RNA sequence: GGGUUGGCCUUAGCUCAGCUGUUAUUUCAGUGCUUUGCAUAUGUCUGAGUUCUCCAAGGCGUGUUCAAACCCUGCCGGUGCUAUCUGACUUUUAG
Dot-bracket structure: .((((((.....(((..((.(....((..(..................................)..))..).)).))).....)))))).....